This 109-nucleotide RNA sequence from Bacillus sp. MRMR6 belongs to the Rfam family "Guanidine-I riboswitch aptamer". About the family: This family represents a conserved RNA structure found upstream of the ykkC and yxkD genes in Bacillus subtilis and related genes in other bacteria. A search with the family's covariance model found it, with a score of 100 bits.
RNA sequence: AAAAUUGCUCUCUAGGGUUCCGUUUAAAAAAUCCUUUUAAAGACUGGUCCGAGAGAGAGCGUACAGUUAGUUUUAGCUGUAUACACGGAGGGAAAAAAGCCCGGGAGAA
Dot-bracket structure: ......((((((..((...(((((((((.......))))))..).)).))....))))))((((((((......)))))))).(.[...(((.......))).)..]..